Source information
Rfam assigns this 81-nucleotide sequence from Nesidiocoris tenuis to the family "mir-67 microRNA precursor family". The literature on the family includes a 2008 paper in Insect Biochem Mol Biol by Cao et al., "Identification of conserved microRNAs in Bombyx mori (silkworm) and regulation of fibroin L chain production by microRNAs in heterologous system". Gene Ontology terms of the family: miRNA-mediated post-transcriptional gene silencing and RISC complex. The organism belongs to Nesidiocoris, within Eukaryota.

[Rfam]
RNA sequence: CCUCGCAGUUACUCACUCAAUCUGGGUGUGAUGUGUUACAUUGUCUUCCAUCACAACCUCCUUGAGUGAGCGACCGAGUGG
Numbered sequence: 001c002c003u004c005g006c007a008g009u010u011a012c013u014c015a016c017u018c019a020a021u022c023u024g025g026g027u028g029u030g031a032u033g034u035g036u037u038a039c040a041u042u043g044u045c046u047u048c049c050a051u052c053a054c055a056a057c058c059u060c061c062u063u064g065a066g067u068g069a070g071c072g073a074c075c076g077a078g079u080g081g
Stems, first nucleotide, its partner, number of pairs: 009072001012070009024058002027055007